RNA sequence: GUCCGCGACACGGGGUGCCCGGUACCGAGCCGGGCUGAGAUCACACCCGUCGAACCUGAUCUCGUUAGCACGAGCGAAGGGAUGUCGACCAUGACGUCU
Numbered sequence: 001g002u003c004c005g006c007g008a009c010a011c012g013g014g015g016u017g018c019c020c021g022g023u024a025c026c027g028a029g030c031c032g033g034g035c036u037g038a039g040a041u042c043a044c045a046c047c048c049g050u051c052g053a054a055c056c057u058g059a060u061c062u063c064g065u066u067a068g069c070a071c072g073a074g075c076g077a078a079g080g081g082a083u084g085u086c087g088a089c090c091a092u093g094a095c096g097u098c099u
Stems, first nucleotide, its partner, number of pairs: 006087005011049004016043001017035007055080003061074004
This 99-nucleotide sequence from Cellulomonas sp. B6 belongs to the Rfam family "TPP riboswitch aptamer (THI element)". Rfam describes the family as follows. Vitamin B(1) in its active form thiamin pyrophosphate (TPP) is an essential coenzyme that is synthesised by coupling of pyrimidine and thiazole moieties in bacteria. A search with the family's covariance model found it, with a score of 70 bits.